[Rfam]
RNA: PhotoRC-II RNA
RNA sequence: UUACACAUACUCCUCCCUUUAACCGAGACCUGUGGGGAGGUUAAGCAAGUCUCUAAUACCUUUAUCUGAGGGUGGUAAAGGAAUAAUCUAACAG
Number, nucleotide and partner (000 for none) at each position: 001u000002u000003a000004c000005a000006c000007a000008u000009a000010c000011u000012c000013c039014u038015c037016c036017c035018u034019u000020u000021a000022a000023c000024c000025g053026a052027g051028a050029c049030c000031u000032g000033u000034g018035g017036g016037g015038a014039g013040g000041u000042u000043a000044a000045g000046c000047a000048a000049g029050u028051c027052u026053c025054u000055a000056a000057u000058a000059c081060c080061u079062u078063u077064a076065u075066c000067u000068g000069a000070g000071g000072g000073u000074g000075g065076u064077a063078a062079a061080g060081g059082a000083a000084u000085a000086a000087u000088c000089u000090a000091a000092c000093a000094g000